[Rfam]
RNA sequence: GUACUGGUUUAGCUCAGCGGUUACUUCCUUACUCAACGUGAAACGCCUCUUAACAGGGGAUCGAACCCCGGGCGCGGUCCAGUGCUUUU
Numbered sequence: 001g002u003a004c005u006g007g008u009u010u011a012g013c014u015c016a017g018c019g020g021u022u023a024c025u026u027c028c029u030u031a032c033u034c035a036a037c038g039u040g041a042a043a044c045g046c047c048u049c050u051u052a053a054c055a056g057g058g059g060a061u062c063g064a065a066c067c068c069c070g071g072g073c074g075c076g077g078u079c080c081a082g083u084g085c086u087u088u089u
Stems, first nucleotide, its partner, number of pairs: 002084006012073004017069001019067002025065003
Dot-bracket structure: .((((((....((((.(.((....(((...................................))))).))))).....)))))).....